[Rfam]
RNA: Bacterial large subunit ribosomal RNA, nucleotides 565 to 791
Organism: Psychrosphaera ytuae
RNA sequence: GACUUAUAUUUUGUAGCAAGGUUAACCGAAUAGGGGAGCCGUAGUGAAAGCGAGGGUUAACUGCCCGUCUAGUUGCAAGGUAUAGACCCGAAACCCGGUGAUCUAGCCAUGGGCAGGUUGAAGGUUGAGUAACAUCAACUGGAGGACCGAACCCACUAACGUUGAAAAGUUAGGGGAUGACCUGUGGCUAGGAGUGAAAGGCUAAUCAAACCGGGAGAUAGCUGGUU
Numbered sequence: 001g002a003c004u005u006a007u008a009u010u011u012u013g014u015a016g017c018a019a020g021g022u023u024a025a026c027c028g029a030a031u032a033g034g035g036g037a038g039c040c041g042u043a044g045u046g047a048a049a050g051c052g053a054g055g056g057u058u059a060a061c062u063g064c065c066c067g068u069c070u071a072g073u074u075g076c077a078a079g080g081u082a083u084a085g086a087c088c089c090g091a092a093a094c095c096c097g098g099u100g101a102u103c104u105a106g107c108c109a110u111g112g113g114c115a116g117g118u119u120g121a122a123g124g125u126u127g128a129g130u131a132a133c134a135u136c137a138a139c140u141g142g143a144g145g146a147c148c149g150a151a152c153c154c155a156c157u158a159a160c161g162u163u164g165a166a167a168a169g170u171u172a173g174g175g176g177a178u179g180a181c182c183u184g185u186g187g188c189u190a191g192g193a194g195u196g197a198a199a200g201g202c203u204a205a206u207c208a209a210a211c212c213g214g215g216a217g218a219u220a221g222c223u224g225g226u227u
Base pairs, nucleotide, nucleotide: 005084006083007082008081009080010079011078012077013076014075015074016073017072020040021039022038023037026034027033044051045050054066055065056064057063087225088224090222094215095214096213097212098211099210103191104190105189106188107187108186109185110184111183112182113181114179116148117147118146119145123140124139125138126137127136128135152176153175154174156173157172158171159170160169193203194202195201